[Rfam]
The record is a 71-nucleotide sequence from Nephila pilipes, which matches "Small nucleolar RNA SNORD34" in Rfam. The family's RNA type in Rfam is C/D-box small nucleolar RNA. For this family Rfam cites "Purified box C/D snoRNPs are able to reproduce site-specific 2'-O-methylation of target RNA in vitro" (Galardi et al., Mol Cell Biol, 2002). Rfam's curators write: snoRNA U34 is found in intron 5 of the ribosomal protein L13a gene in humans. The family has 14 seed sequences and 1,319 matches in Rfam 15.1.

RNA sequence: UGCUAGCAAUGAUGAAUGUAUACCUACAUUGUUUGAUUUAUCAUGAUUAAAAAACUACACCUGAGCUAGAA
Numbered sequence: 001u002g003c004u005a006g007c008a009a010u011g012a013u014g015a016a017u018g019u020a021u022a023c024c025u026a027c028a029u030u031g032u033u034u035g036a037u038u039u040a041u042c043a044u045g046a047u048u049a050a051a052a053a054a055c056u057a058c059a060c061c062u063g064a065g066c067u068a069g070a071a
Stems, first nucleotide, its partner, number of pairs: 001071001004068004